[Rfam]
RNA sequence: CCGCGGUGCAUUGCUGUUGCAUUGCAUGUGUGAAGCGGGUGCAAUGCCUCAGCAGUGCAGCCCAG
Numbered sequence: 001c002c003g004c005g006g007u008g009c010a011u012u013g014c015u016g017u018u019g020c021a022u023u024g025c026a027u028g029u030g031u032g033a034a035g036c037g038g039g040u041g042c043a044a045u046g047c048c049u050c051a052g053c054a055g056u057g058c059a060g061c062c063c064a065g
Base pairs, nucleotide, nucleotide: 001065003063006061007059008058009057010056011055012054013053014052015051016050019047021045022044023043024042025041026040027039
A member of the RNA family "mir-33 microRNA precursor family" from Nannospalax galili, 65 nucleotides long. A search with the family's covariance model found it, with a score of 68 bits. Rfam links the family to the GO terms RISC complex and gene silencing by miRNA. Rfam 15.1 lists 1,467 matches to the family in 815 species. The family's consensus secondary structure was predicted with PFOLD. The organism belongs to Nannospalax, within Eukaryota.